[Rfam]
Annotation: Rfam assigns this 98-nucleotide sequence from Calcarius ornatus to the family "Small nucleolar RNA SNORD67".
RNA sequence: UCUGAGACAGCUGAGCACAGGGGGACCCCGUCCCAAGGGGGACAGUCCCCCUCUCCCUGCAGCCUUUCCCUUUUGCACAGGGGACAGUCUGUGUCCCG
Numbered sequence: 001u002c003u004g005a006g007a008c009a010g011c012u013g014a015g016c017a018c019a020g021g022g023g024g025a026c027c028c029c030g031u032c033c034c035a036a037g038g039g040g041g042a043c044a045g046u047c048c049c050c051c052u053c054u055c056c057c058u059g060c061a062g063c064c065u066u067u068c069c070c071u072u073u074u075g076c077a078c079a080g081g082g083g084a085c086a087g088u089c090u091g092u093g094u095c096c097c098g
Base pairs, nucleotide, nucleotide: 004097006095007094008093019052020051021050022049024047025046026045030043031042032041033040034039
Gene Ontology terms of the family: RNA processing and nucleolus. The source organism's lineage runs through Eukaryota, Metazoa, Archosauria, Fringillidae and Calcarius. From the family's description: snoRNA HBII-166 belongs to the C/D family of snoRNAs. The base pairs follow the family's consensus structure.